[Rfam]
RNA sequence: UAAAAGUCUCGAACAGCAUCCAUGAGCCAGAUCGUGUUUACACGGGAUGGCUCAUGGAUAUUGGACGGGCUAACCUGUAUGAACAAUCUCAGCAGUCGCUCUUCUUGUUCAUACAGGUAUUGCGAAAGAACCAAAGUGCGGAGCAAUCGACUUUCA
Numbered sequence: 001u002a003a004a005a006g007u008c009u010c011g012a013a014c015a016g017c018a019u020c021c022a023u024g025a026g027c028c029a030g031a032u033c034g035u036g037u038u039u040a041c042a043c044g045g046g047a048u049g050g051c052u053c054a055u056g057g058a059u060a061u062u063g064g065a066c067g068g069g070c071u072a073a074c075c076u077g078u079a080u081g082a083a084c085a086a087u088c089u090c091a092g093c094a095g096u097c098g099c100u101c102u103u104c105u106u107g108u109u110c111a112u113a114c115a116g117g118u119a120u121u122g123c124g125a126a127a128g129a130a131c132c133a134a135a136g137u138g139c140g141g142a143g144c145a146a147u148c149g150a151c152u153u154u155c156a
Stems, first nucleotide, its partner, number of pairs: 001156001003154005008069004015062002018059012032045005073118008083108004119147005128139001130137002
Rfam assigns this 156-nucleotide RNA sequence from Clostridiales bacterium CHKCI001 to the family "Clostridiales-1 RNA". Rfam classes the family as a small RNA. The organism belongs to Eubacteriales, within Bacteria.